RNA sequence: GUUGGCUAUGGAGAUAUGGUACCCACAACCAUUGGUGGCAAGAUUGUUGGUUCACUUUGUGCCAUUGCUGGAGUGCUGACCAUUGCCUUGCCAGUGCCUGUUAUUGUCUCAAAU
Number, nucleotide and partner (000 for none) at each position: 001g114002u113003u000004g000005g110006c000007u000008a107009u106010g105011g104012a000013g102014a101015u100016a099017u000018g097019g000020u000021a095022c094023c000024c000025a000026c000027a000028a000029c000030c000031a000032u000033u000034g000035g000036u000037g077038g076039c075040a074041a000042g000043a000044u000045u000046g000047u000048u000049g063050g062051u061052u000053c000054a000055c000056u000057u000058u000059g000060u000061g051062c050063c049064a000065u000066u000067g000068c000069u000070g000071g000072a000073g000074u040075g039076c038077u037078g000079a000080c000081c000082a000083u000084u000085g000086c000087c000088u000089u000090g000091c000092c000093a000094g022095u021096g000097c018098c000099u016100g015101u014102u013103a000104u011105u010106g009107u008108c000109u000110c005111a000112a000113a002114u001
Potassium channel RNA editing signal: a 114-nucleotide RNA sequence from Hemibagrus wyckioides.
From the family's description: This family represents a group of sequences related to the human potassium channel Kv1.1 hairpin element which directs the efficient modification of an adenosine to inosine by an adenosine deaminase acting on RNA (ADAR). The ADAR modification causes an isoleucine/valine recoding event which lies in the ion-conducting pore of the potassium channel. It is thought that this editing event targets the process of fast inactivation and allows a more rapid recovery from inactivation at negative potentials.
The base pairs follow the family's consensus structure, which is taken from published work.
A search with the family's covariance model found it, with a score of 105 bits.
It is annotated as a cis-regulatory element.
The organism belongs to Hemibagrus, within Eukaryota.